[Rfam]
Nucleotides: 187
Stems, first nucleotide, its partner, number of pairs: 001187002005183001075138009084124006094115005100110004
Number, partner (000 for none) and nucleotide at each position: 001187a002186u003000u004000c005183c006000a007000a008000u009000g010000a011000g012000g013000a014000u015000c016000u017000c018000a019000a020000g021000a022000c023000c024000u025000a026000c027000a028000a029000c030000u031000a032000g033000g034000g035000a036000a037000u038000u039000u040000u041000a042000u043000u044000u045000g046000a047000c048000a049000a050000u051000g052000u053000a054000a055000g056000u057000a058000a059000c060000a061000a062000c063000u064000g065000g066000u067000u068000c069000u070000u071000u072000u073000a074000g075138u076137u077136g078135u079134a080133g081132g082131u083130g084124u085123c086122c087121a088120u089119c090000g091000u092000g093000c094115g095114a096113c097112c098111a099000c100110a101109a102108c103107c104000u105000c106000u107103g108102g109101u110100u111098u112097g113096g114095u115094c116000u117000g118000g119089g120088a121087u122086g123085g124084a125000g126000c127000a128000c129000u130083c131082a132081u133080c134079u135078g136077u137076a138075g139000u140000u141000g142000a143000u144000g145000g146000a147000u148000u149000c150000a151000a152000c153000u154000a155000u156000g157000a158000u159000g160000u161000g162000u163000g164000a165000u166000u167000u168000c169000a170000a171000u172000u173000g174000g175000g176000u177000c178000u179000u180000u181000g182000a183005g184000u185000u186002g187001u

The record is a 187-nucleotide sequence from Zea mays, which matches "Small nucleolar RNA Z112" in Rfam.
The source organism's lineage runs through Eukaryota, Viridiplantae, Embryophyta, Tracheophyta and Zea.
The family's consensus secondary structure was predicted with PFOLD.
It is annotated as a C/D-box small nucleolar RNA.
The match comes from Rfam's covariance-model search (109 bits).